[Rfam]
RNA sequence: UGCACGAGGGGAAGCGCUGAUCCCCGAGCCGUGAACCGGUCGCCAGGUGCGUCACGGGGGCACACGGCGGCUCGAGGGGAGCCAAUGGCGAGACCGACCCCAGGACCG
Numbered sequence: 001u002g003c004a005c006g007a008g009g010g011g012a013a014g015c016g017c018u019g020a021u022c023c024c025c026g027a028g029c030c031g032u033g034a035a036c037c038g039g040u041c042g043c044c045a046g047g048u049g050c051g052u053c054a055c056g057g058g059g060g061c062a063c064a065c066g067g068c069g070g071c072u073c074g075a076g077g078g079g080a081g082c083c084a085a086u087g088g089c090g091a092g093a094c095c096g097a098c099c100c101c102a103g104g105a106c107c108g
Stems, first nucleotide, its partner, number of pairs: 001108002005104001008101004014082002022077002025074005038095002040091005
Record summary:
Shown here is a 108-nucleotide RNA sequence, a member of the family "c-di-GMP-II-GAG riboswitch aptamer". Gene Ontology terms of the family: cyclic-di-GMP binding and regulation of gene expression. Its Rfam clan is "c-di-GMP_II riboswitch clan". The base pairs follow the family's consensus structure, which is taken from published work. It is one of the family's seed sequences.